Transposase-2 RNA: a 71-nucleotide sequence.
RNA sequence: GAAGCGCGAACCAAGCGGUCACCUGCUGGUGGCGUAAGGCUUGGAGUUGGCCUUGGUAACGAGGCCAUACA
Numbered sequence: 001g002a003a004g005c006g007c008g009a010a011c012c013a014a015g016c017g018g019u020c021a022c023c024u025g026c027u028g029g030u031g032g033c034g035u036a037a038g039g040c041u042u043g044g045a046g047u048u049g050g051c052c053u054u055g056g057u058a059a060c061g062a063g064g065c066c067a068u069a070c071a
Base pairs, nucleotide, nucleotide: 011044012043013042014041015040018033019032020031021030022029048067049066050065051064052063053062054061055060